[Rfam]
RNA: U4 spliceosomal RNA
RNA sequence: AGCUUUGCACAGUGGCAGUAUCGUAGCCAAUGAGGUUUAUCCGAGGCACAAUUAUUGCUAAUUAAAAAAAAAAGUAGAAAUUUAUUUUAUCAUCCUGGUAUGCCCCUUAAAUACCAUCAGUAACUUACUGCUAGGUUUGGGGUCAUAUUCUAAAUUCUUAACCAGGCAUUCAAGUC
Dot-bracket structure: ...................((.((.(((.....((.....))..))))).))............................................((((((.((((...............................)))).))))).)..............(((......)))